[Rfam]
RNA sequence: ACGGUGGCCGGUAGCAAUGGCUUGUGGUUCGUUUAGAGACUGCUUGCUUAUAACACUUGGCCAGAACGAAAAUCUAUCUAAUAUCCGUAGCGUCAUAAUGUGUAGUAUAGCCGACAUUUGGCGUAUGAAACGAAGAGACAUUAUC
Numbered sequence: 001a002c003g004g005u006g007g008c009c010g011g012u013a014g015c016a017a018u019g020g021c022u023u024g025u026g027g028u029u030c031g032u033u034u035a036g037a038g039a040c041u042g043c044u045u046g047c048u049u050a051u052a053a054c055a056c057u058u059g060g061c062c063a064g065a066a067c068g069a070a071a072a073u074c075u076a077u078c079u080a081a082u083a084u085c086c087g088u089a090g091c092g093u094c095a096u097a098a099u100g101u102g103u104a105g106u107a108u109a110g111c112c113g114a115c116a117u118u119u120g121g122c123g124u125a126u127g128a129a130a131c132g133a134a135g136a137g138a139c140a141u142u143a144u145c
Base pairs, nucleotide, nucleotide: 005063006062007061008060009059010058011056012055024043025042026041027040028039092139093138094137099132100131101130105126106125107124108123110122111121112120113119114118
RNA: Small nucleolar RNA psi28S-2876
Organism: Drosophila melanogaster